Annotation: The record is a 176-nucleotide RNA from Burkholderia sp. WAC0059, which matches "Manganese Mn2+ riboswitch aptamer (yybP-ykoY)" in Rfam. Taxonomically the source falls in Burkholderia (Bacteria, Pseudomonadati, Pseudomonadota, Burkholderiales). About the family: This RNA was originally discovered in E. coli during a large scale screen and was named SraF. The family was later found to exist upstream of related families of protein genes in many bacteria, including the the yybP and ykoK genes in B. subtilis. The specific functions of these proteins are unknown, but this structured RNA element may be involved in their genetic regulation as a riboswitch.
RNA sequence: CCGCCCCUCAUUGGGGAGUAGCCGCCCCGCGUUCCGCGACUAUCCGGCCAACAAGCCGGAUUUCUUUUGCGCGGCAACCGCGGGGGCGCCUGUCAACAGACUUGGCCGCAAGGCCAUGGCAGGUGCAGCCUCGGGCCUGGCGAGACCGAUGACUCAUGACCGCCGCAAUAGGGCCC
Numbered sequence: 001c002c003g004c005c006c007c008u009c010a011u012u013g014g015g016g017a018g019u020a021g022c023c024g025c026c027c028c029g030c031g032u033u034c035c036g037c038g039a040c041u042a043u044c045c046g047g048c049c050a051a052c053a054a055g056c057c058g059g060a061u062u063u064c065u066u067u068u069g070c071g072c073g074g075c076a077a078c079c080g081c082g083g084g085g086g087c088g089c090c091u092g093u094c095a096a097c098a099g100a101c102u103u104g105g106c107c108g109c110a111a112g113g114c115c116a117u118g119g120c121a122g123g124u125g126c127a128g129c130c131u132c133g134g135g136c137c138u139g140g141c142g143a144g145a146c147c148g149a150u151g152a153c154u155c156a157u158g159a160c161c162g163c164c165g166c167a168a169u170a171g172g173g174c175c176c
Stems, first nucleotide, its partner, number of pairs: 026084006086126010103116005